[Rfam]
RNA sequence: CACCACACAGCAAUCUUUAUUUCUUGAACUUUACUUCUGUGAGGGUCUUUACUGUUUAUAAAUGAUAGCUUCUUCUUCACUCU
Numbered sequence: 001c002a003c004c005a006c007a008c009a010g011c012a013a014u015c016u017u018u019a020u021u022u023c024u025u026g027a028a029c030u031u032u033a034c035u036u037c038u039g040u041g042a043g044g045g046u047c048u049u050u051a052c053u054g055u056u057u058a059u060a061a062a063u064g065a066u067a068g069c070u071u072c073u074u075c076u077u078c079a080c081u082c083u
Stems, first nucleotide, its partner, number of pairs: 009076002012073001016061002022051001027046001029044006
RNA: Stem loopII regulatory element in POLB